A member of the RNA family "mir-33 microRNA precursor family" from Menidia menidia, 68 nucleotides long. Rfam 15.1 lists 1,467 matches to the family in 815 species. Taxonomically the source falls in Menidia (Eukaryota, Bilateria, Teleostei, Euteleosteomorpha).
Nucleotides: 068
Base pairs, nucleotide, nucleotide: 001068002067003066004065006064007062008061009060010059013056014055015054016053021048022047023046024045025044026043027042
Number, partner (000 for none) and nucleotide at each position: 001068c002067u003066g004065u005000g006064g007062u008061g009060c010059a011000u012000u013056g014055u015054a016053g017000u018000u019000g020000c021048a022047u023046u024045g025044c026043a027042u028000g029000u030000u031000a032000c033000g034000c035000a036000g037000a038000c039000a040000c041000g042027g043026u044025g045024c046023a047022a048021u049000g050000g051000a052000u053016c054015u055014g056013c057000u058000c059010u060009g061008c062007a063000g064006c065004a066003c067002a068001g